This 167-nucleotide RNA from Suillus luteus belongs to the Rfam family "small nucleolar RNA snR35". Rfam classes the family as an H/ACA-box small nucleolar RNA. On this family, see Li et al., J Biol Chem 2005: "Identification and functional analysis of 20 Box H/ACA small nucleolar RNAs (snoRNAs) from Schizosaccharomyces pombe". It scores 38 bits against the family's covariance model. Rfam links the family to the GO terms RNA processing and nucleolus. Lineage of the source: Eukaryota > Opisthokonta > Agaricomycotina > Suillineae > Suillus luteus.

RNA sequence: UUUGUGCGGCGACACGGCCAGACCUUCCCCAUGUUGCUCAUAGCUGCCCAUAACUCACGCGGCUGUUCGAGUGUCAGGCCGUGUCCUGAAUAAUUGGACGUCUUAGCACCCAUUAUCGCGUCAUCCGACUUUCCUGGAGAAGCGAUGGGUCGGUGGUUCAUACAUAU
Number, nucleotide and partner (000 for none) at each position: 001u000002u000003u000004g000005u000006g000007c000008g000009g000010c000011g000012a000013c000014a000015c000016g000017g000018c000019c000020a000021g085022a084023c083024c081025u000026u000027c000028c000029c000030c000031a000032u000033g000034u000035u000036g072037c071038u070039c069040a000041u000042a000043g000044c062045u061046g060047c059048c000049c000050a000051u000052a000053a000054c000055u000056c000057a000058c000059g047060c046061g045062g044063c000064u000065g000066u000067u000068c000069g039070a038071g037072u036073g000074u000075c000076a000077g000078g000079c000080c000081g024082u000083g023084u022085c021086c000087u000088g000089a000090a000091u000092a000093a000094u000095u160096g159097g158098a157099c156100g000101u000102c000103u000104u000105a000106g000107c000108a000109c000110c000111c000112a000113u148114u147115a146116u145117c144118g143119c142120g000121u140122c000123a000124u000125c000126c000127g000128a000129c000130u000131u000132u000133c000134c000135u000136g000137g000138a000139g000140a121141a000142g119143c118144g117145a116146u115147g114148g113149g000150u000151c000152g000153g000154u000155g000156g099157u098158u097159c096160a095161u000162a000163c000164a000165u000166a000167u000